Description:
A member of the RNA family "Glycine riboswitch aptamer" from Sphingomonas sp. YR710, 96 nucleotides long. The pairing is the family consensus, mapped onto this sequence. Rfam links the family to the GO term glycine biosynthetic process. Taxonomically the source falls in Sphingomonas (Bacteria, Pseudomonadati, Pseudomonadota, Alphaproteobacteria).

[Rfam]
RNA sequence: GAUGGCCAUGCGGGAGAGUGCAGCGGGCGGAAGCCCGAGGCCGCCGAAGGAGCAACCGCCCCGGAAUCUCUCAGGUCAAAGGACCGCAUGGACAGG
Numbered sequence: 001g002a003u004g005g006c007c008a009u010g011c012g013g014g015a016g017a018g019u020g021c022a023g024c025g026g027g028c029g030g031a032a033g034c035c036c037g038a039g040g041c042c043g044c045c046g047a048a049g050g051a052g053c054a055a056c057c058g059c060c061c062c063g064g065a066a067u068c069u070c071u072c073a074g075g076u077c078a079a080a081g082g083a084c085c086g087c088a089u090g091g092a093c094a095g096g
Base pairs, nucleotide, nucleotide: 006091007090008089009088010087011086012085013084020041021040043076044075045074046072047071050070051069052068056064057063